[Rfam]
Overview:
A member of the RNA family "mir-194 microRNA precursor family" from Pleuronectes platessa, 82 nucleotides long. NCBI's taxonomy places the organism under Eukaryota, Teleostei, Acanthomorphata, Percomorphaceae, Pleuronectes. The family's consensus secondary structure was predicted with RNAalifold.
RNA sequence: UGCUUUUGCUGUAUGUAACAGCAACUCCAUGUGGAAGUCAUGUGUGUGUUCCAGUGGAGAUGGUGUUACCUGCAGAGAGCCG
Numbered sequence: 001u002g003c004u005u006u007u008g009c010u011g012u013a014u015g016u017a018a019c020a021g022c023a024a025c026u027c028c029a030u031g032u033g034g035a036a037g038u039c040a041u042g043u044g045u046g047u048g049u050u051c052c053a054g055u056g057g058a059g060a061u062g063g064u065g066u067u068a069c070c071u072g073c074a075g076a077g078a079g080c081c082g
Base pairs, nucleotide, nucleotide: 009075010074011073015069016068017067018066019065020064022062025059026058027057028056029055030054032053033052034051